[Rfam]
Annotation: Shown here is a 228-nucleotide RNA sequence from Miscanthus lutarioriparius, a member of the family "MIR6217 microRNA precursor family". Its family is annotated with miRNA-mediated post-transcriptional gene silencing and RISC complex in the Gene Ontology. NCBI's taxonomy places the organism under Eukaryota, Viridiplantae, Spermatophyta, Poales, Miscanthus.
RNA sequence: UGGUCAUAGAAUAACUUAUUCUGUGGCCACUUUGAGUUACGAUAAUUACUAUAUAAAUUUACGAUAUUAUAGUAACCCCUUACUAAGUGGUUUAUUAUAACGUUAUGGUAAAUAUCCCCAUGUGUUAUAGUAACACAACUAUCGUAAAUAUGUAUUAACAUUAUCGUAAAUUAGUAUAUAAAAUUAUCGUAAAUGAAGGUGGCUACAGAAUAAUUUAUUUUGUAGUUG
Numbered sequence: 001u002g003g004u005c006a007u008a009g010a011a012u013a014a015c016u017u018a019u020u021c022u023g024u025g026g027c028c029a030c031u032u033u034g035a036g037u038u039a040c041g042a043u044a045a046u047u048a049c050u051a052u053a054u055a056a057a058u059u060u061a062c063g064a065u066a067u068u069a070u071a072g073u074a075a076c077c078c079c080u081u082a083c084u085a086a087g088u089g090g091u092u093u094a095u096u097a098u099a100a101c102g103u104u105a106u107g108g109u110a111a112a113u114a115u116c117c118c119c120a121u122g123u124g125u126u127a128u129a130g131u132a133a134c135a136c137a138a139c140u141a142u143c144g145u146a147a148a149u150a151u152g153u154a155u156u157a158a159c160a161u162u163a164u165c166g167u168a169a170a171u172u173a174g175u176a177u178a179u180a181a182a183a184u185u186a187u188c189g190u191a192a193a194u195g196a197a198g199g200u201g202g203c204u205a206c207a208g209a210a211u212a213a214u215u216u217a218u219u220u221u222g223u224a225g226u227u228g
Base pairs, nucleotide, nucleotide: 001228002227003226004225006223007222008221009220010219011218012217013216014215016213017212018211019210020209021208022207023206024205025204026203027202028201029200030199031198032197033196037192038191039190040189041188042187043186044185045184046183047182050178051177052176053175054174056172057171058170059169060168061167062166066164067163069161070160074155080147081146082145083144087142088141089140090139091138092137093132094131095130096129097128098127099126100125101124102123103122107117108116